RNA: tRNA
RNA sequence: GGGCCCGUAGUGUAAACGGAUAUCACAGGGGCCUCCGGAGCCCCUAAUCCGGGUUCGAUUCCCGGCGGGCCCG
Numbered sequence: 001g002g003g004c005c006c007g008u009a010g011u012g013u014a015a016a017c018g019g020a021u022a023u024c025a026c027a028g029g030g031g032c033c034u035c036c037g038g039a040g041c042c043c044c045u046a047a048u049c050c051g052g053g054u055u056c057g058a059u060u061c062c063c064g065g066c067g068g069g070c071c072c073g
Stems, first nucleotide, its partner, number of pairs: 001072007010026003028044005049065005